[Rfam]
RNA sequence: GUCCACAGCAGCGACUGGCGCCGAAGAGGUGGAGCACCACCGGGGAGCGACGACACGGCCGGCACCGCGCGCCUGGGUGCCCUGC
Numbered sequence: 001g002u003c004c005a006c007a008g009c010a011g012c013g014a015c016u017g018g019c020g021c022c023g024a025a026g027a028g029g030u031g032g033a034g035c036a037c038c039a040c041c042g043g044g045g046a047g048c049g050a051c052g053a054c055a056c057g058g059c060c061g062g063c064a065c066c067g068c069g070c071g072c073c074u075g076g077g078u079g080c081c082c083u084g085c
Stems, first nucleotide, its partner, number of pairs: 003052001006049001011048002015044002017073005029040004062080005